Bacterial small signal recognition particle RNA: a 95-nucleotide RNA from Methylobacillus flagellatus.
The family's consensus secondary structure is taken from published work.
The signal recognition particle (SRP) is a universally conserved ribonucleoprotein involved in the co-translational targeting of proteins to membranes.
Its Rfam clan is "SRP clan".
Taxonomically the source falls in Methylobacillus flagellatus (Bacteria, Pseudomonadota, Betaproteobacteria, Nitrosomonadales).
It is annotated as a non-coding RNA gene.
RNA sequence: GGCGGGCCUCCCCGCAUUGCAAAGUAGCCAACCUGGUCAGGUCCGGAAGGAAGCAGCCACAACUAUUGAAGCAAGUGCCGGGGGUUGGGCUCGCC
Dot-bracket structure: ...((((((((((((.((((..(((((......((((....(((....)))....))))...)))))...)))))...))))))...)))))...